[Rfam]
RNA sequence: CCCAGGUAUGGCGACAUGGUGCCAAAGACAAUAGCUGGCAAGAUUUUUGGUUCAAUAUGCUCCCUAAGUGGGGUCUUGGUCAUUGCUCUGCCAGUUCCCGUCAUUGUCUCCAAC
Numbered sequence: 001c002c003c004a005g006g007u008a009u010g011g012c013g014a015c016a017u018g019g020u021g022c023c024a025a026a027g028a029c030a031a032u033a034g035c036u037g038g039c040a041a042g043a044u045u046u047u048u049g050g051u052u053c054a055a056u057a058u059g060c061u062c063c064c065u066a067a068g069u070g071g072g073g074u075c076u077u078g079g080u081c082a083u084u085g086c087u088c089u090g091c092c093a094g095u096u097c098c099c100g101u102c103a104u105u106g107u108c109u110c111c112a113a114c
Base pairs, nucleotide, nucleotide: 005110008107009106010105011104013102014101015100018097019096021095022094037077038076040074049063050062

This 114-nucleotide RNA sequence from Cephalopterus ornatus belongs to the Rfam family "Potassium channel RNA editing signal". For this family Rfam cites "Control of human potassium channel inactivation by editing of a small mRNA hairpin" (Bhalla et al., Nat Struct Mol Biol, 2004). The family's consensus secondary structure is taken from published work. Rfam classes the family as a cis-regulatory element. Its family is annotated with adenosine to inosine editing in the Gene Ontology.